[Rfam]
RNA sequence: CAGUGGGUGCGAGUCCCACCCGGCCAACUGGGUCGCUCCAGCCGGAAGCCAUCGGAGCGGCGGCGGAGGUGACGAAGCCGCCGAAGCCUUCGAGAAAACGGGCCGCGCAGGCGGCUCGGCGAGCAGGCAGGCCGUAACGCGA
Dot-bracket structure: ...................(((((................))))).......(((((((((((....(....)....))))))....))))).......((((((......)))))).(((...........))).......

Group II catalytic intron D1-D4-4: a 142-nucleotide RNA sequence from Planctomyces sp. SH-PL62. Pairs were carried over by alignment from the consensus structure. The source organism's lineage runs through Bacteria, Pseudomonadati, Planctomycetota, Planctomycetales and Planctomyces. Group II introns are found in rRNA, tRNA and mRNA of organelles in fungi, plants and protists, and also in mRNA in bacteria. On this family, see Chu et al., EMBO J 2001: "Control of branch-site choice by a group II intron". Gene Ontology term of the family: Group II intron splicing.